[Rfam]
RNA sequence: AAGCGAAUCCGAUAAUACACCGAUGGCCUGCCAGAUGUUCCUGCCCUAAGAGGGCAACCAAAGUCUGGACCAACAGGCCAUCGGCACGGUUCGCCC
Numbered sequence: 001a002a003g004c005g006a007a008u009c010c011g012a013u014a015a016u017a018c019a020c021c022g023a024u025g026g027c028c029u030g031c032c033a034g035a036u037g038u039u040c041c042u043g044c045c046c047u048a049a050g051a052g053g054g055c056a057a058c059c060a061a062a063g064u065c066u067g068g069a070c071c072a073a074c075a076g077g078c079c080a081u082c083g084g085c086a087c088g089g090u091u092c093g094c095c096c
Base pairs, nucleotide, nucleotide: 003094004093005092006091009089010088024080025079026078027077028076029075030074031068032067033066034065035064036063042056043055044054045053046052